[Rfam]
RNA: Glycine riboswitch aptamer
Organism: Agromyces aureus
RNA sequence: CGACGCAUCGCGGGAGAGCCGGAGACGUUCUGUUCACGCAGAGCCGGGCCGGCACCGAAGGAGCAAGCCUCCCCGCCAAUCUCUCAGGUAUCACACCGCGAUGAACAC
Numbered sequence: 001c002g003a004c005g006c007a008u009c010g011c012g013g014g015a016g017a018g019c020c021g022g023a024g025a026c027g028u029u030c031u032g033u034u035c036a037c038g039c040a041g042a043g044c045c046g047g048g049c050c051g052g053c054a055c056c057g058a059a060g061g062a063g064c065a066a067g068c069c070u071c072c073c074c075g076c077c078a079a080u081c082u083c084u085c086a087g088g089u090a091u092c093a094c095a096c097c098g099c100g101a102u103g104a105a106c107a108c
Base pairs, nucleotide, nucleotide: 006103007102008101009100010099011098012097013096019052020051021050022049054089055088056087057085058084061083062082063081067076068075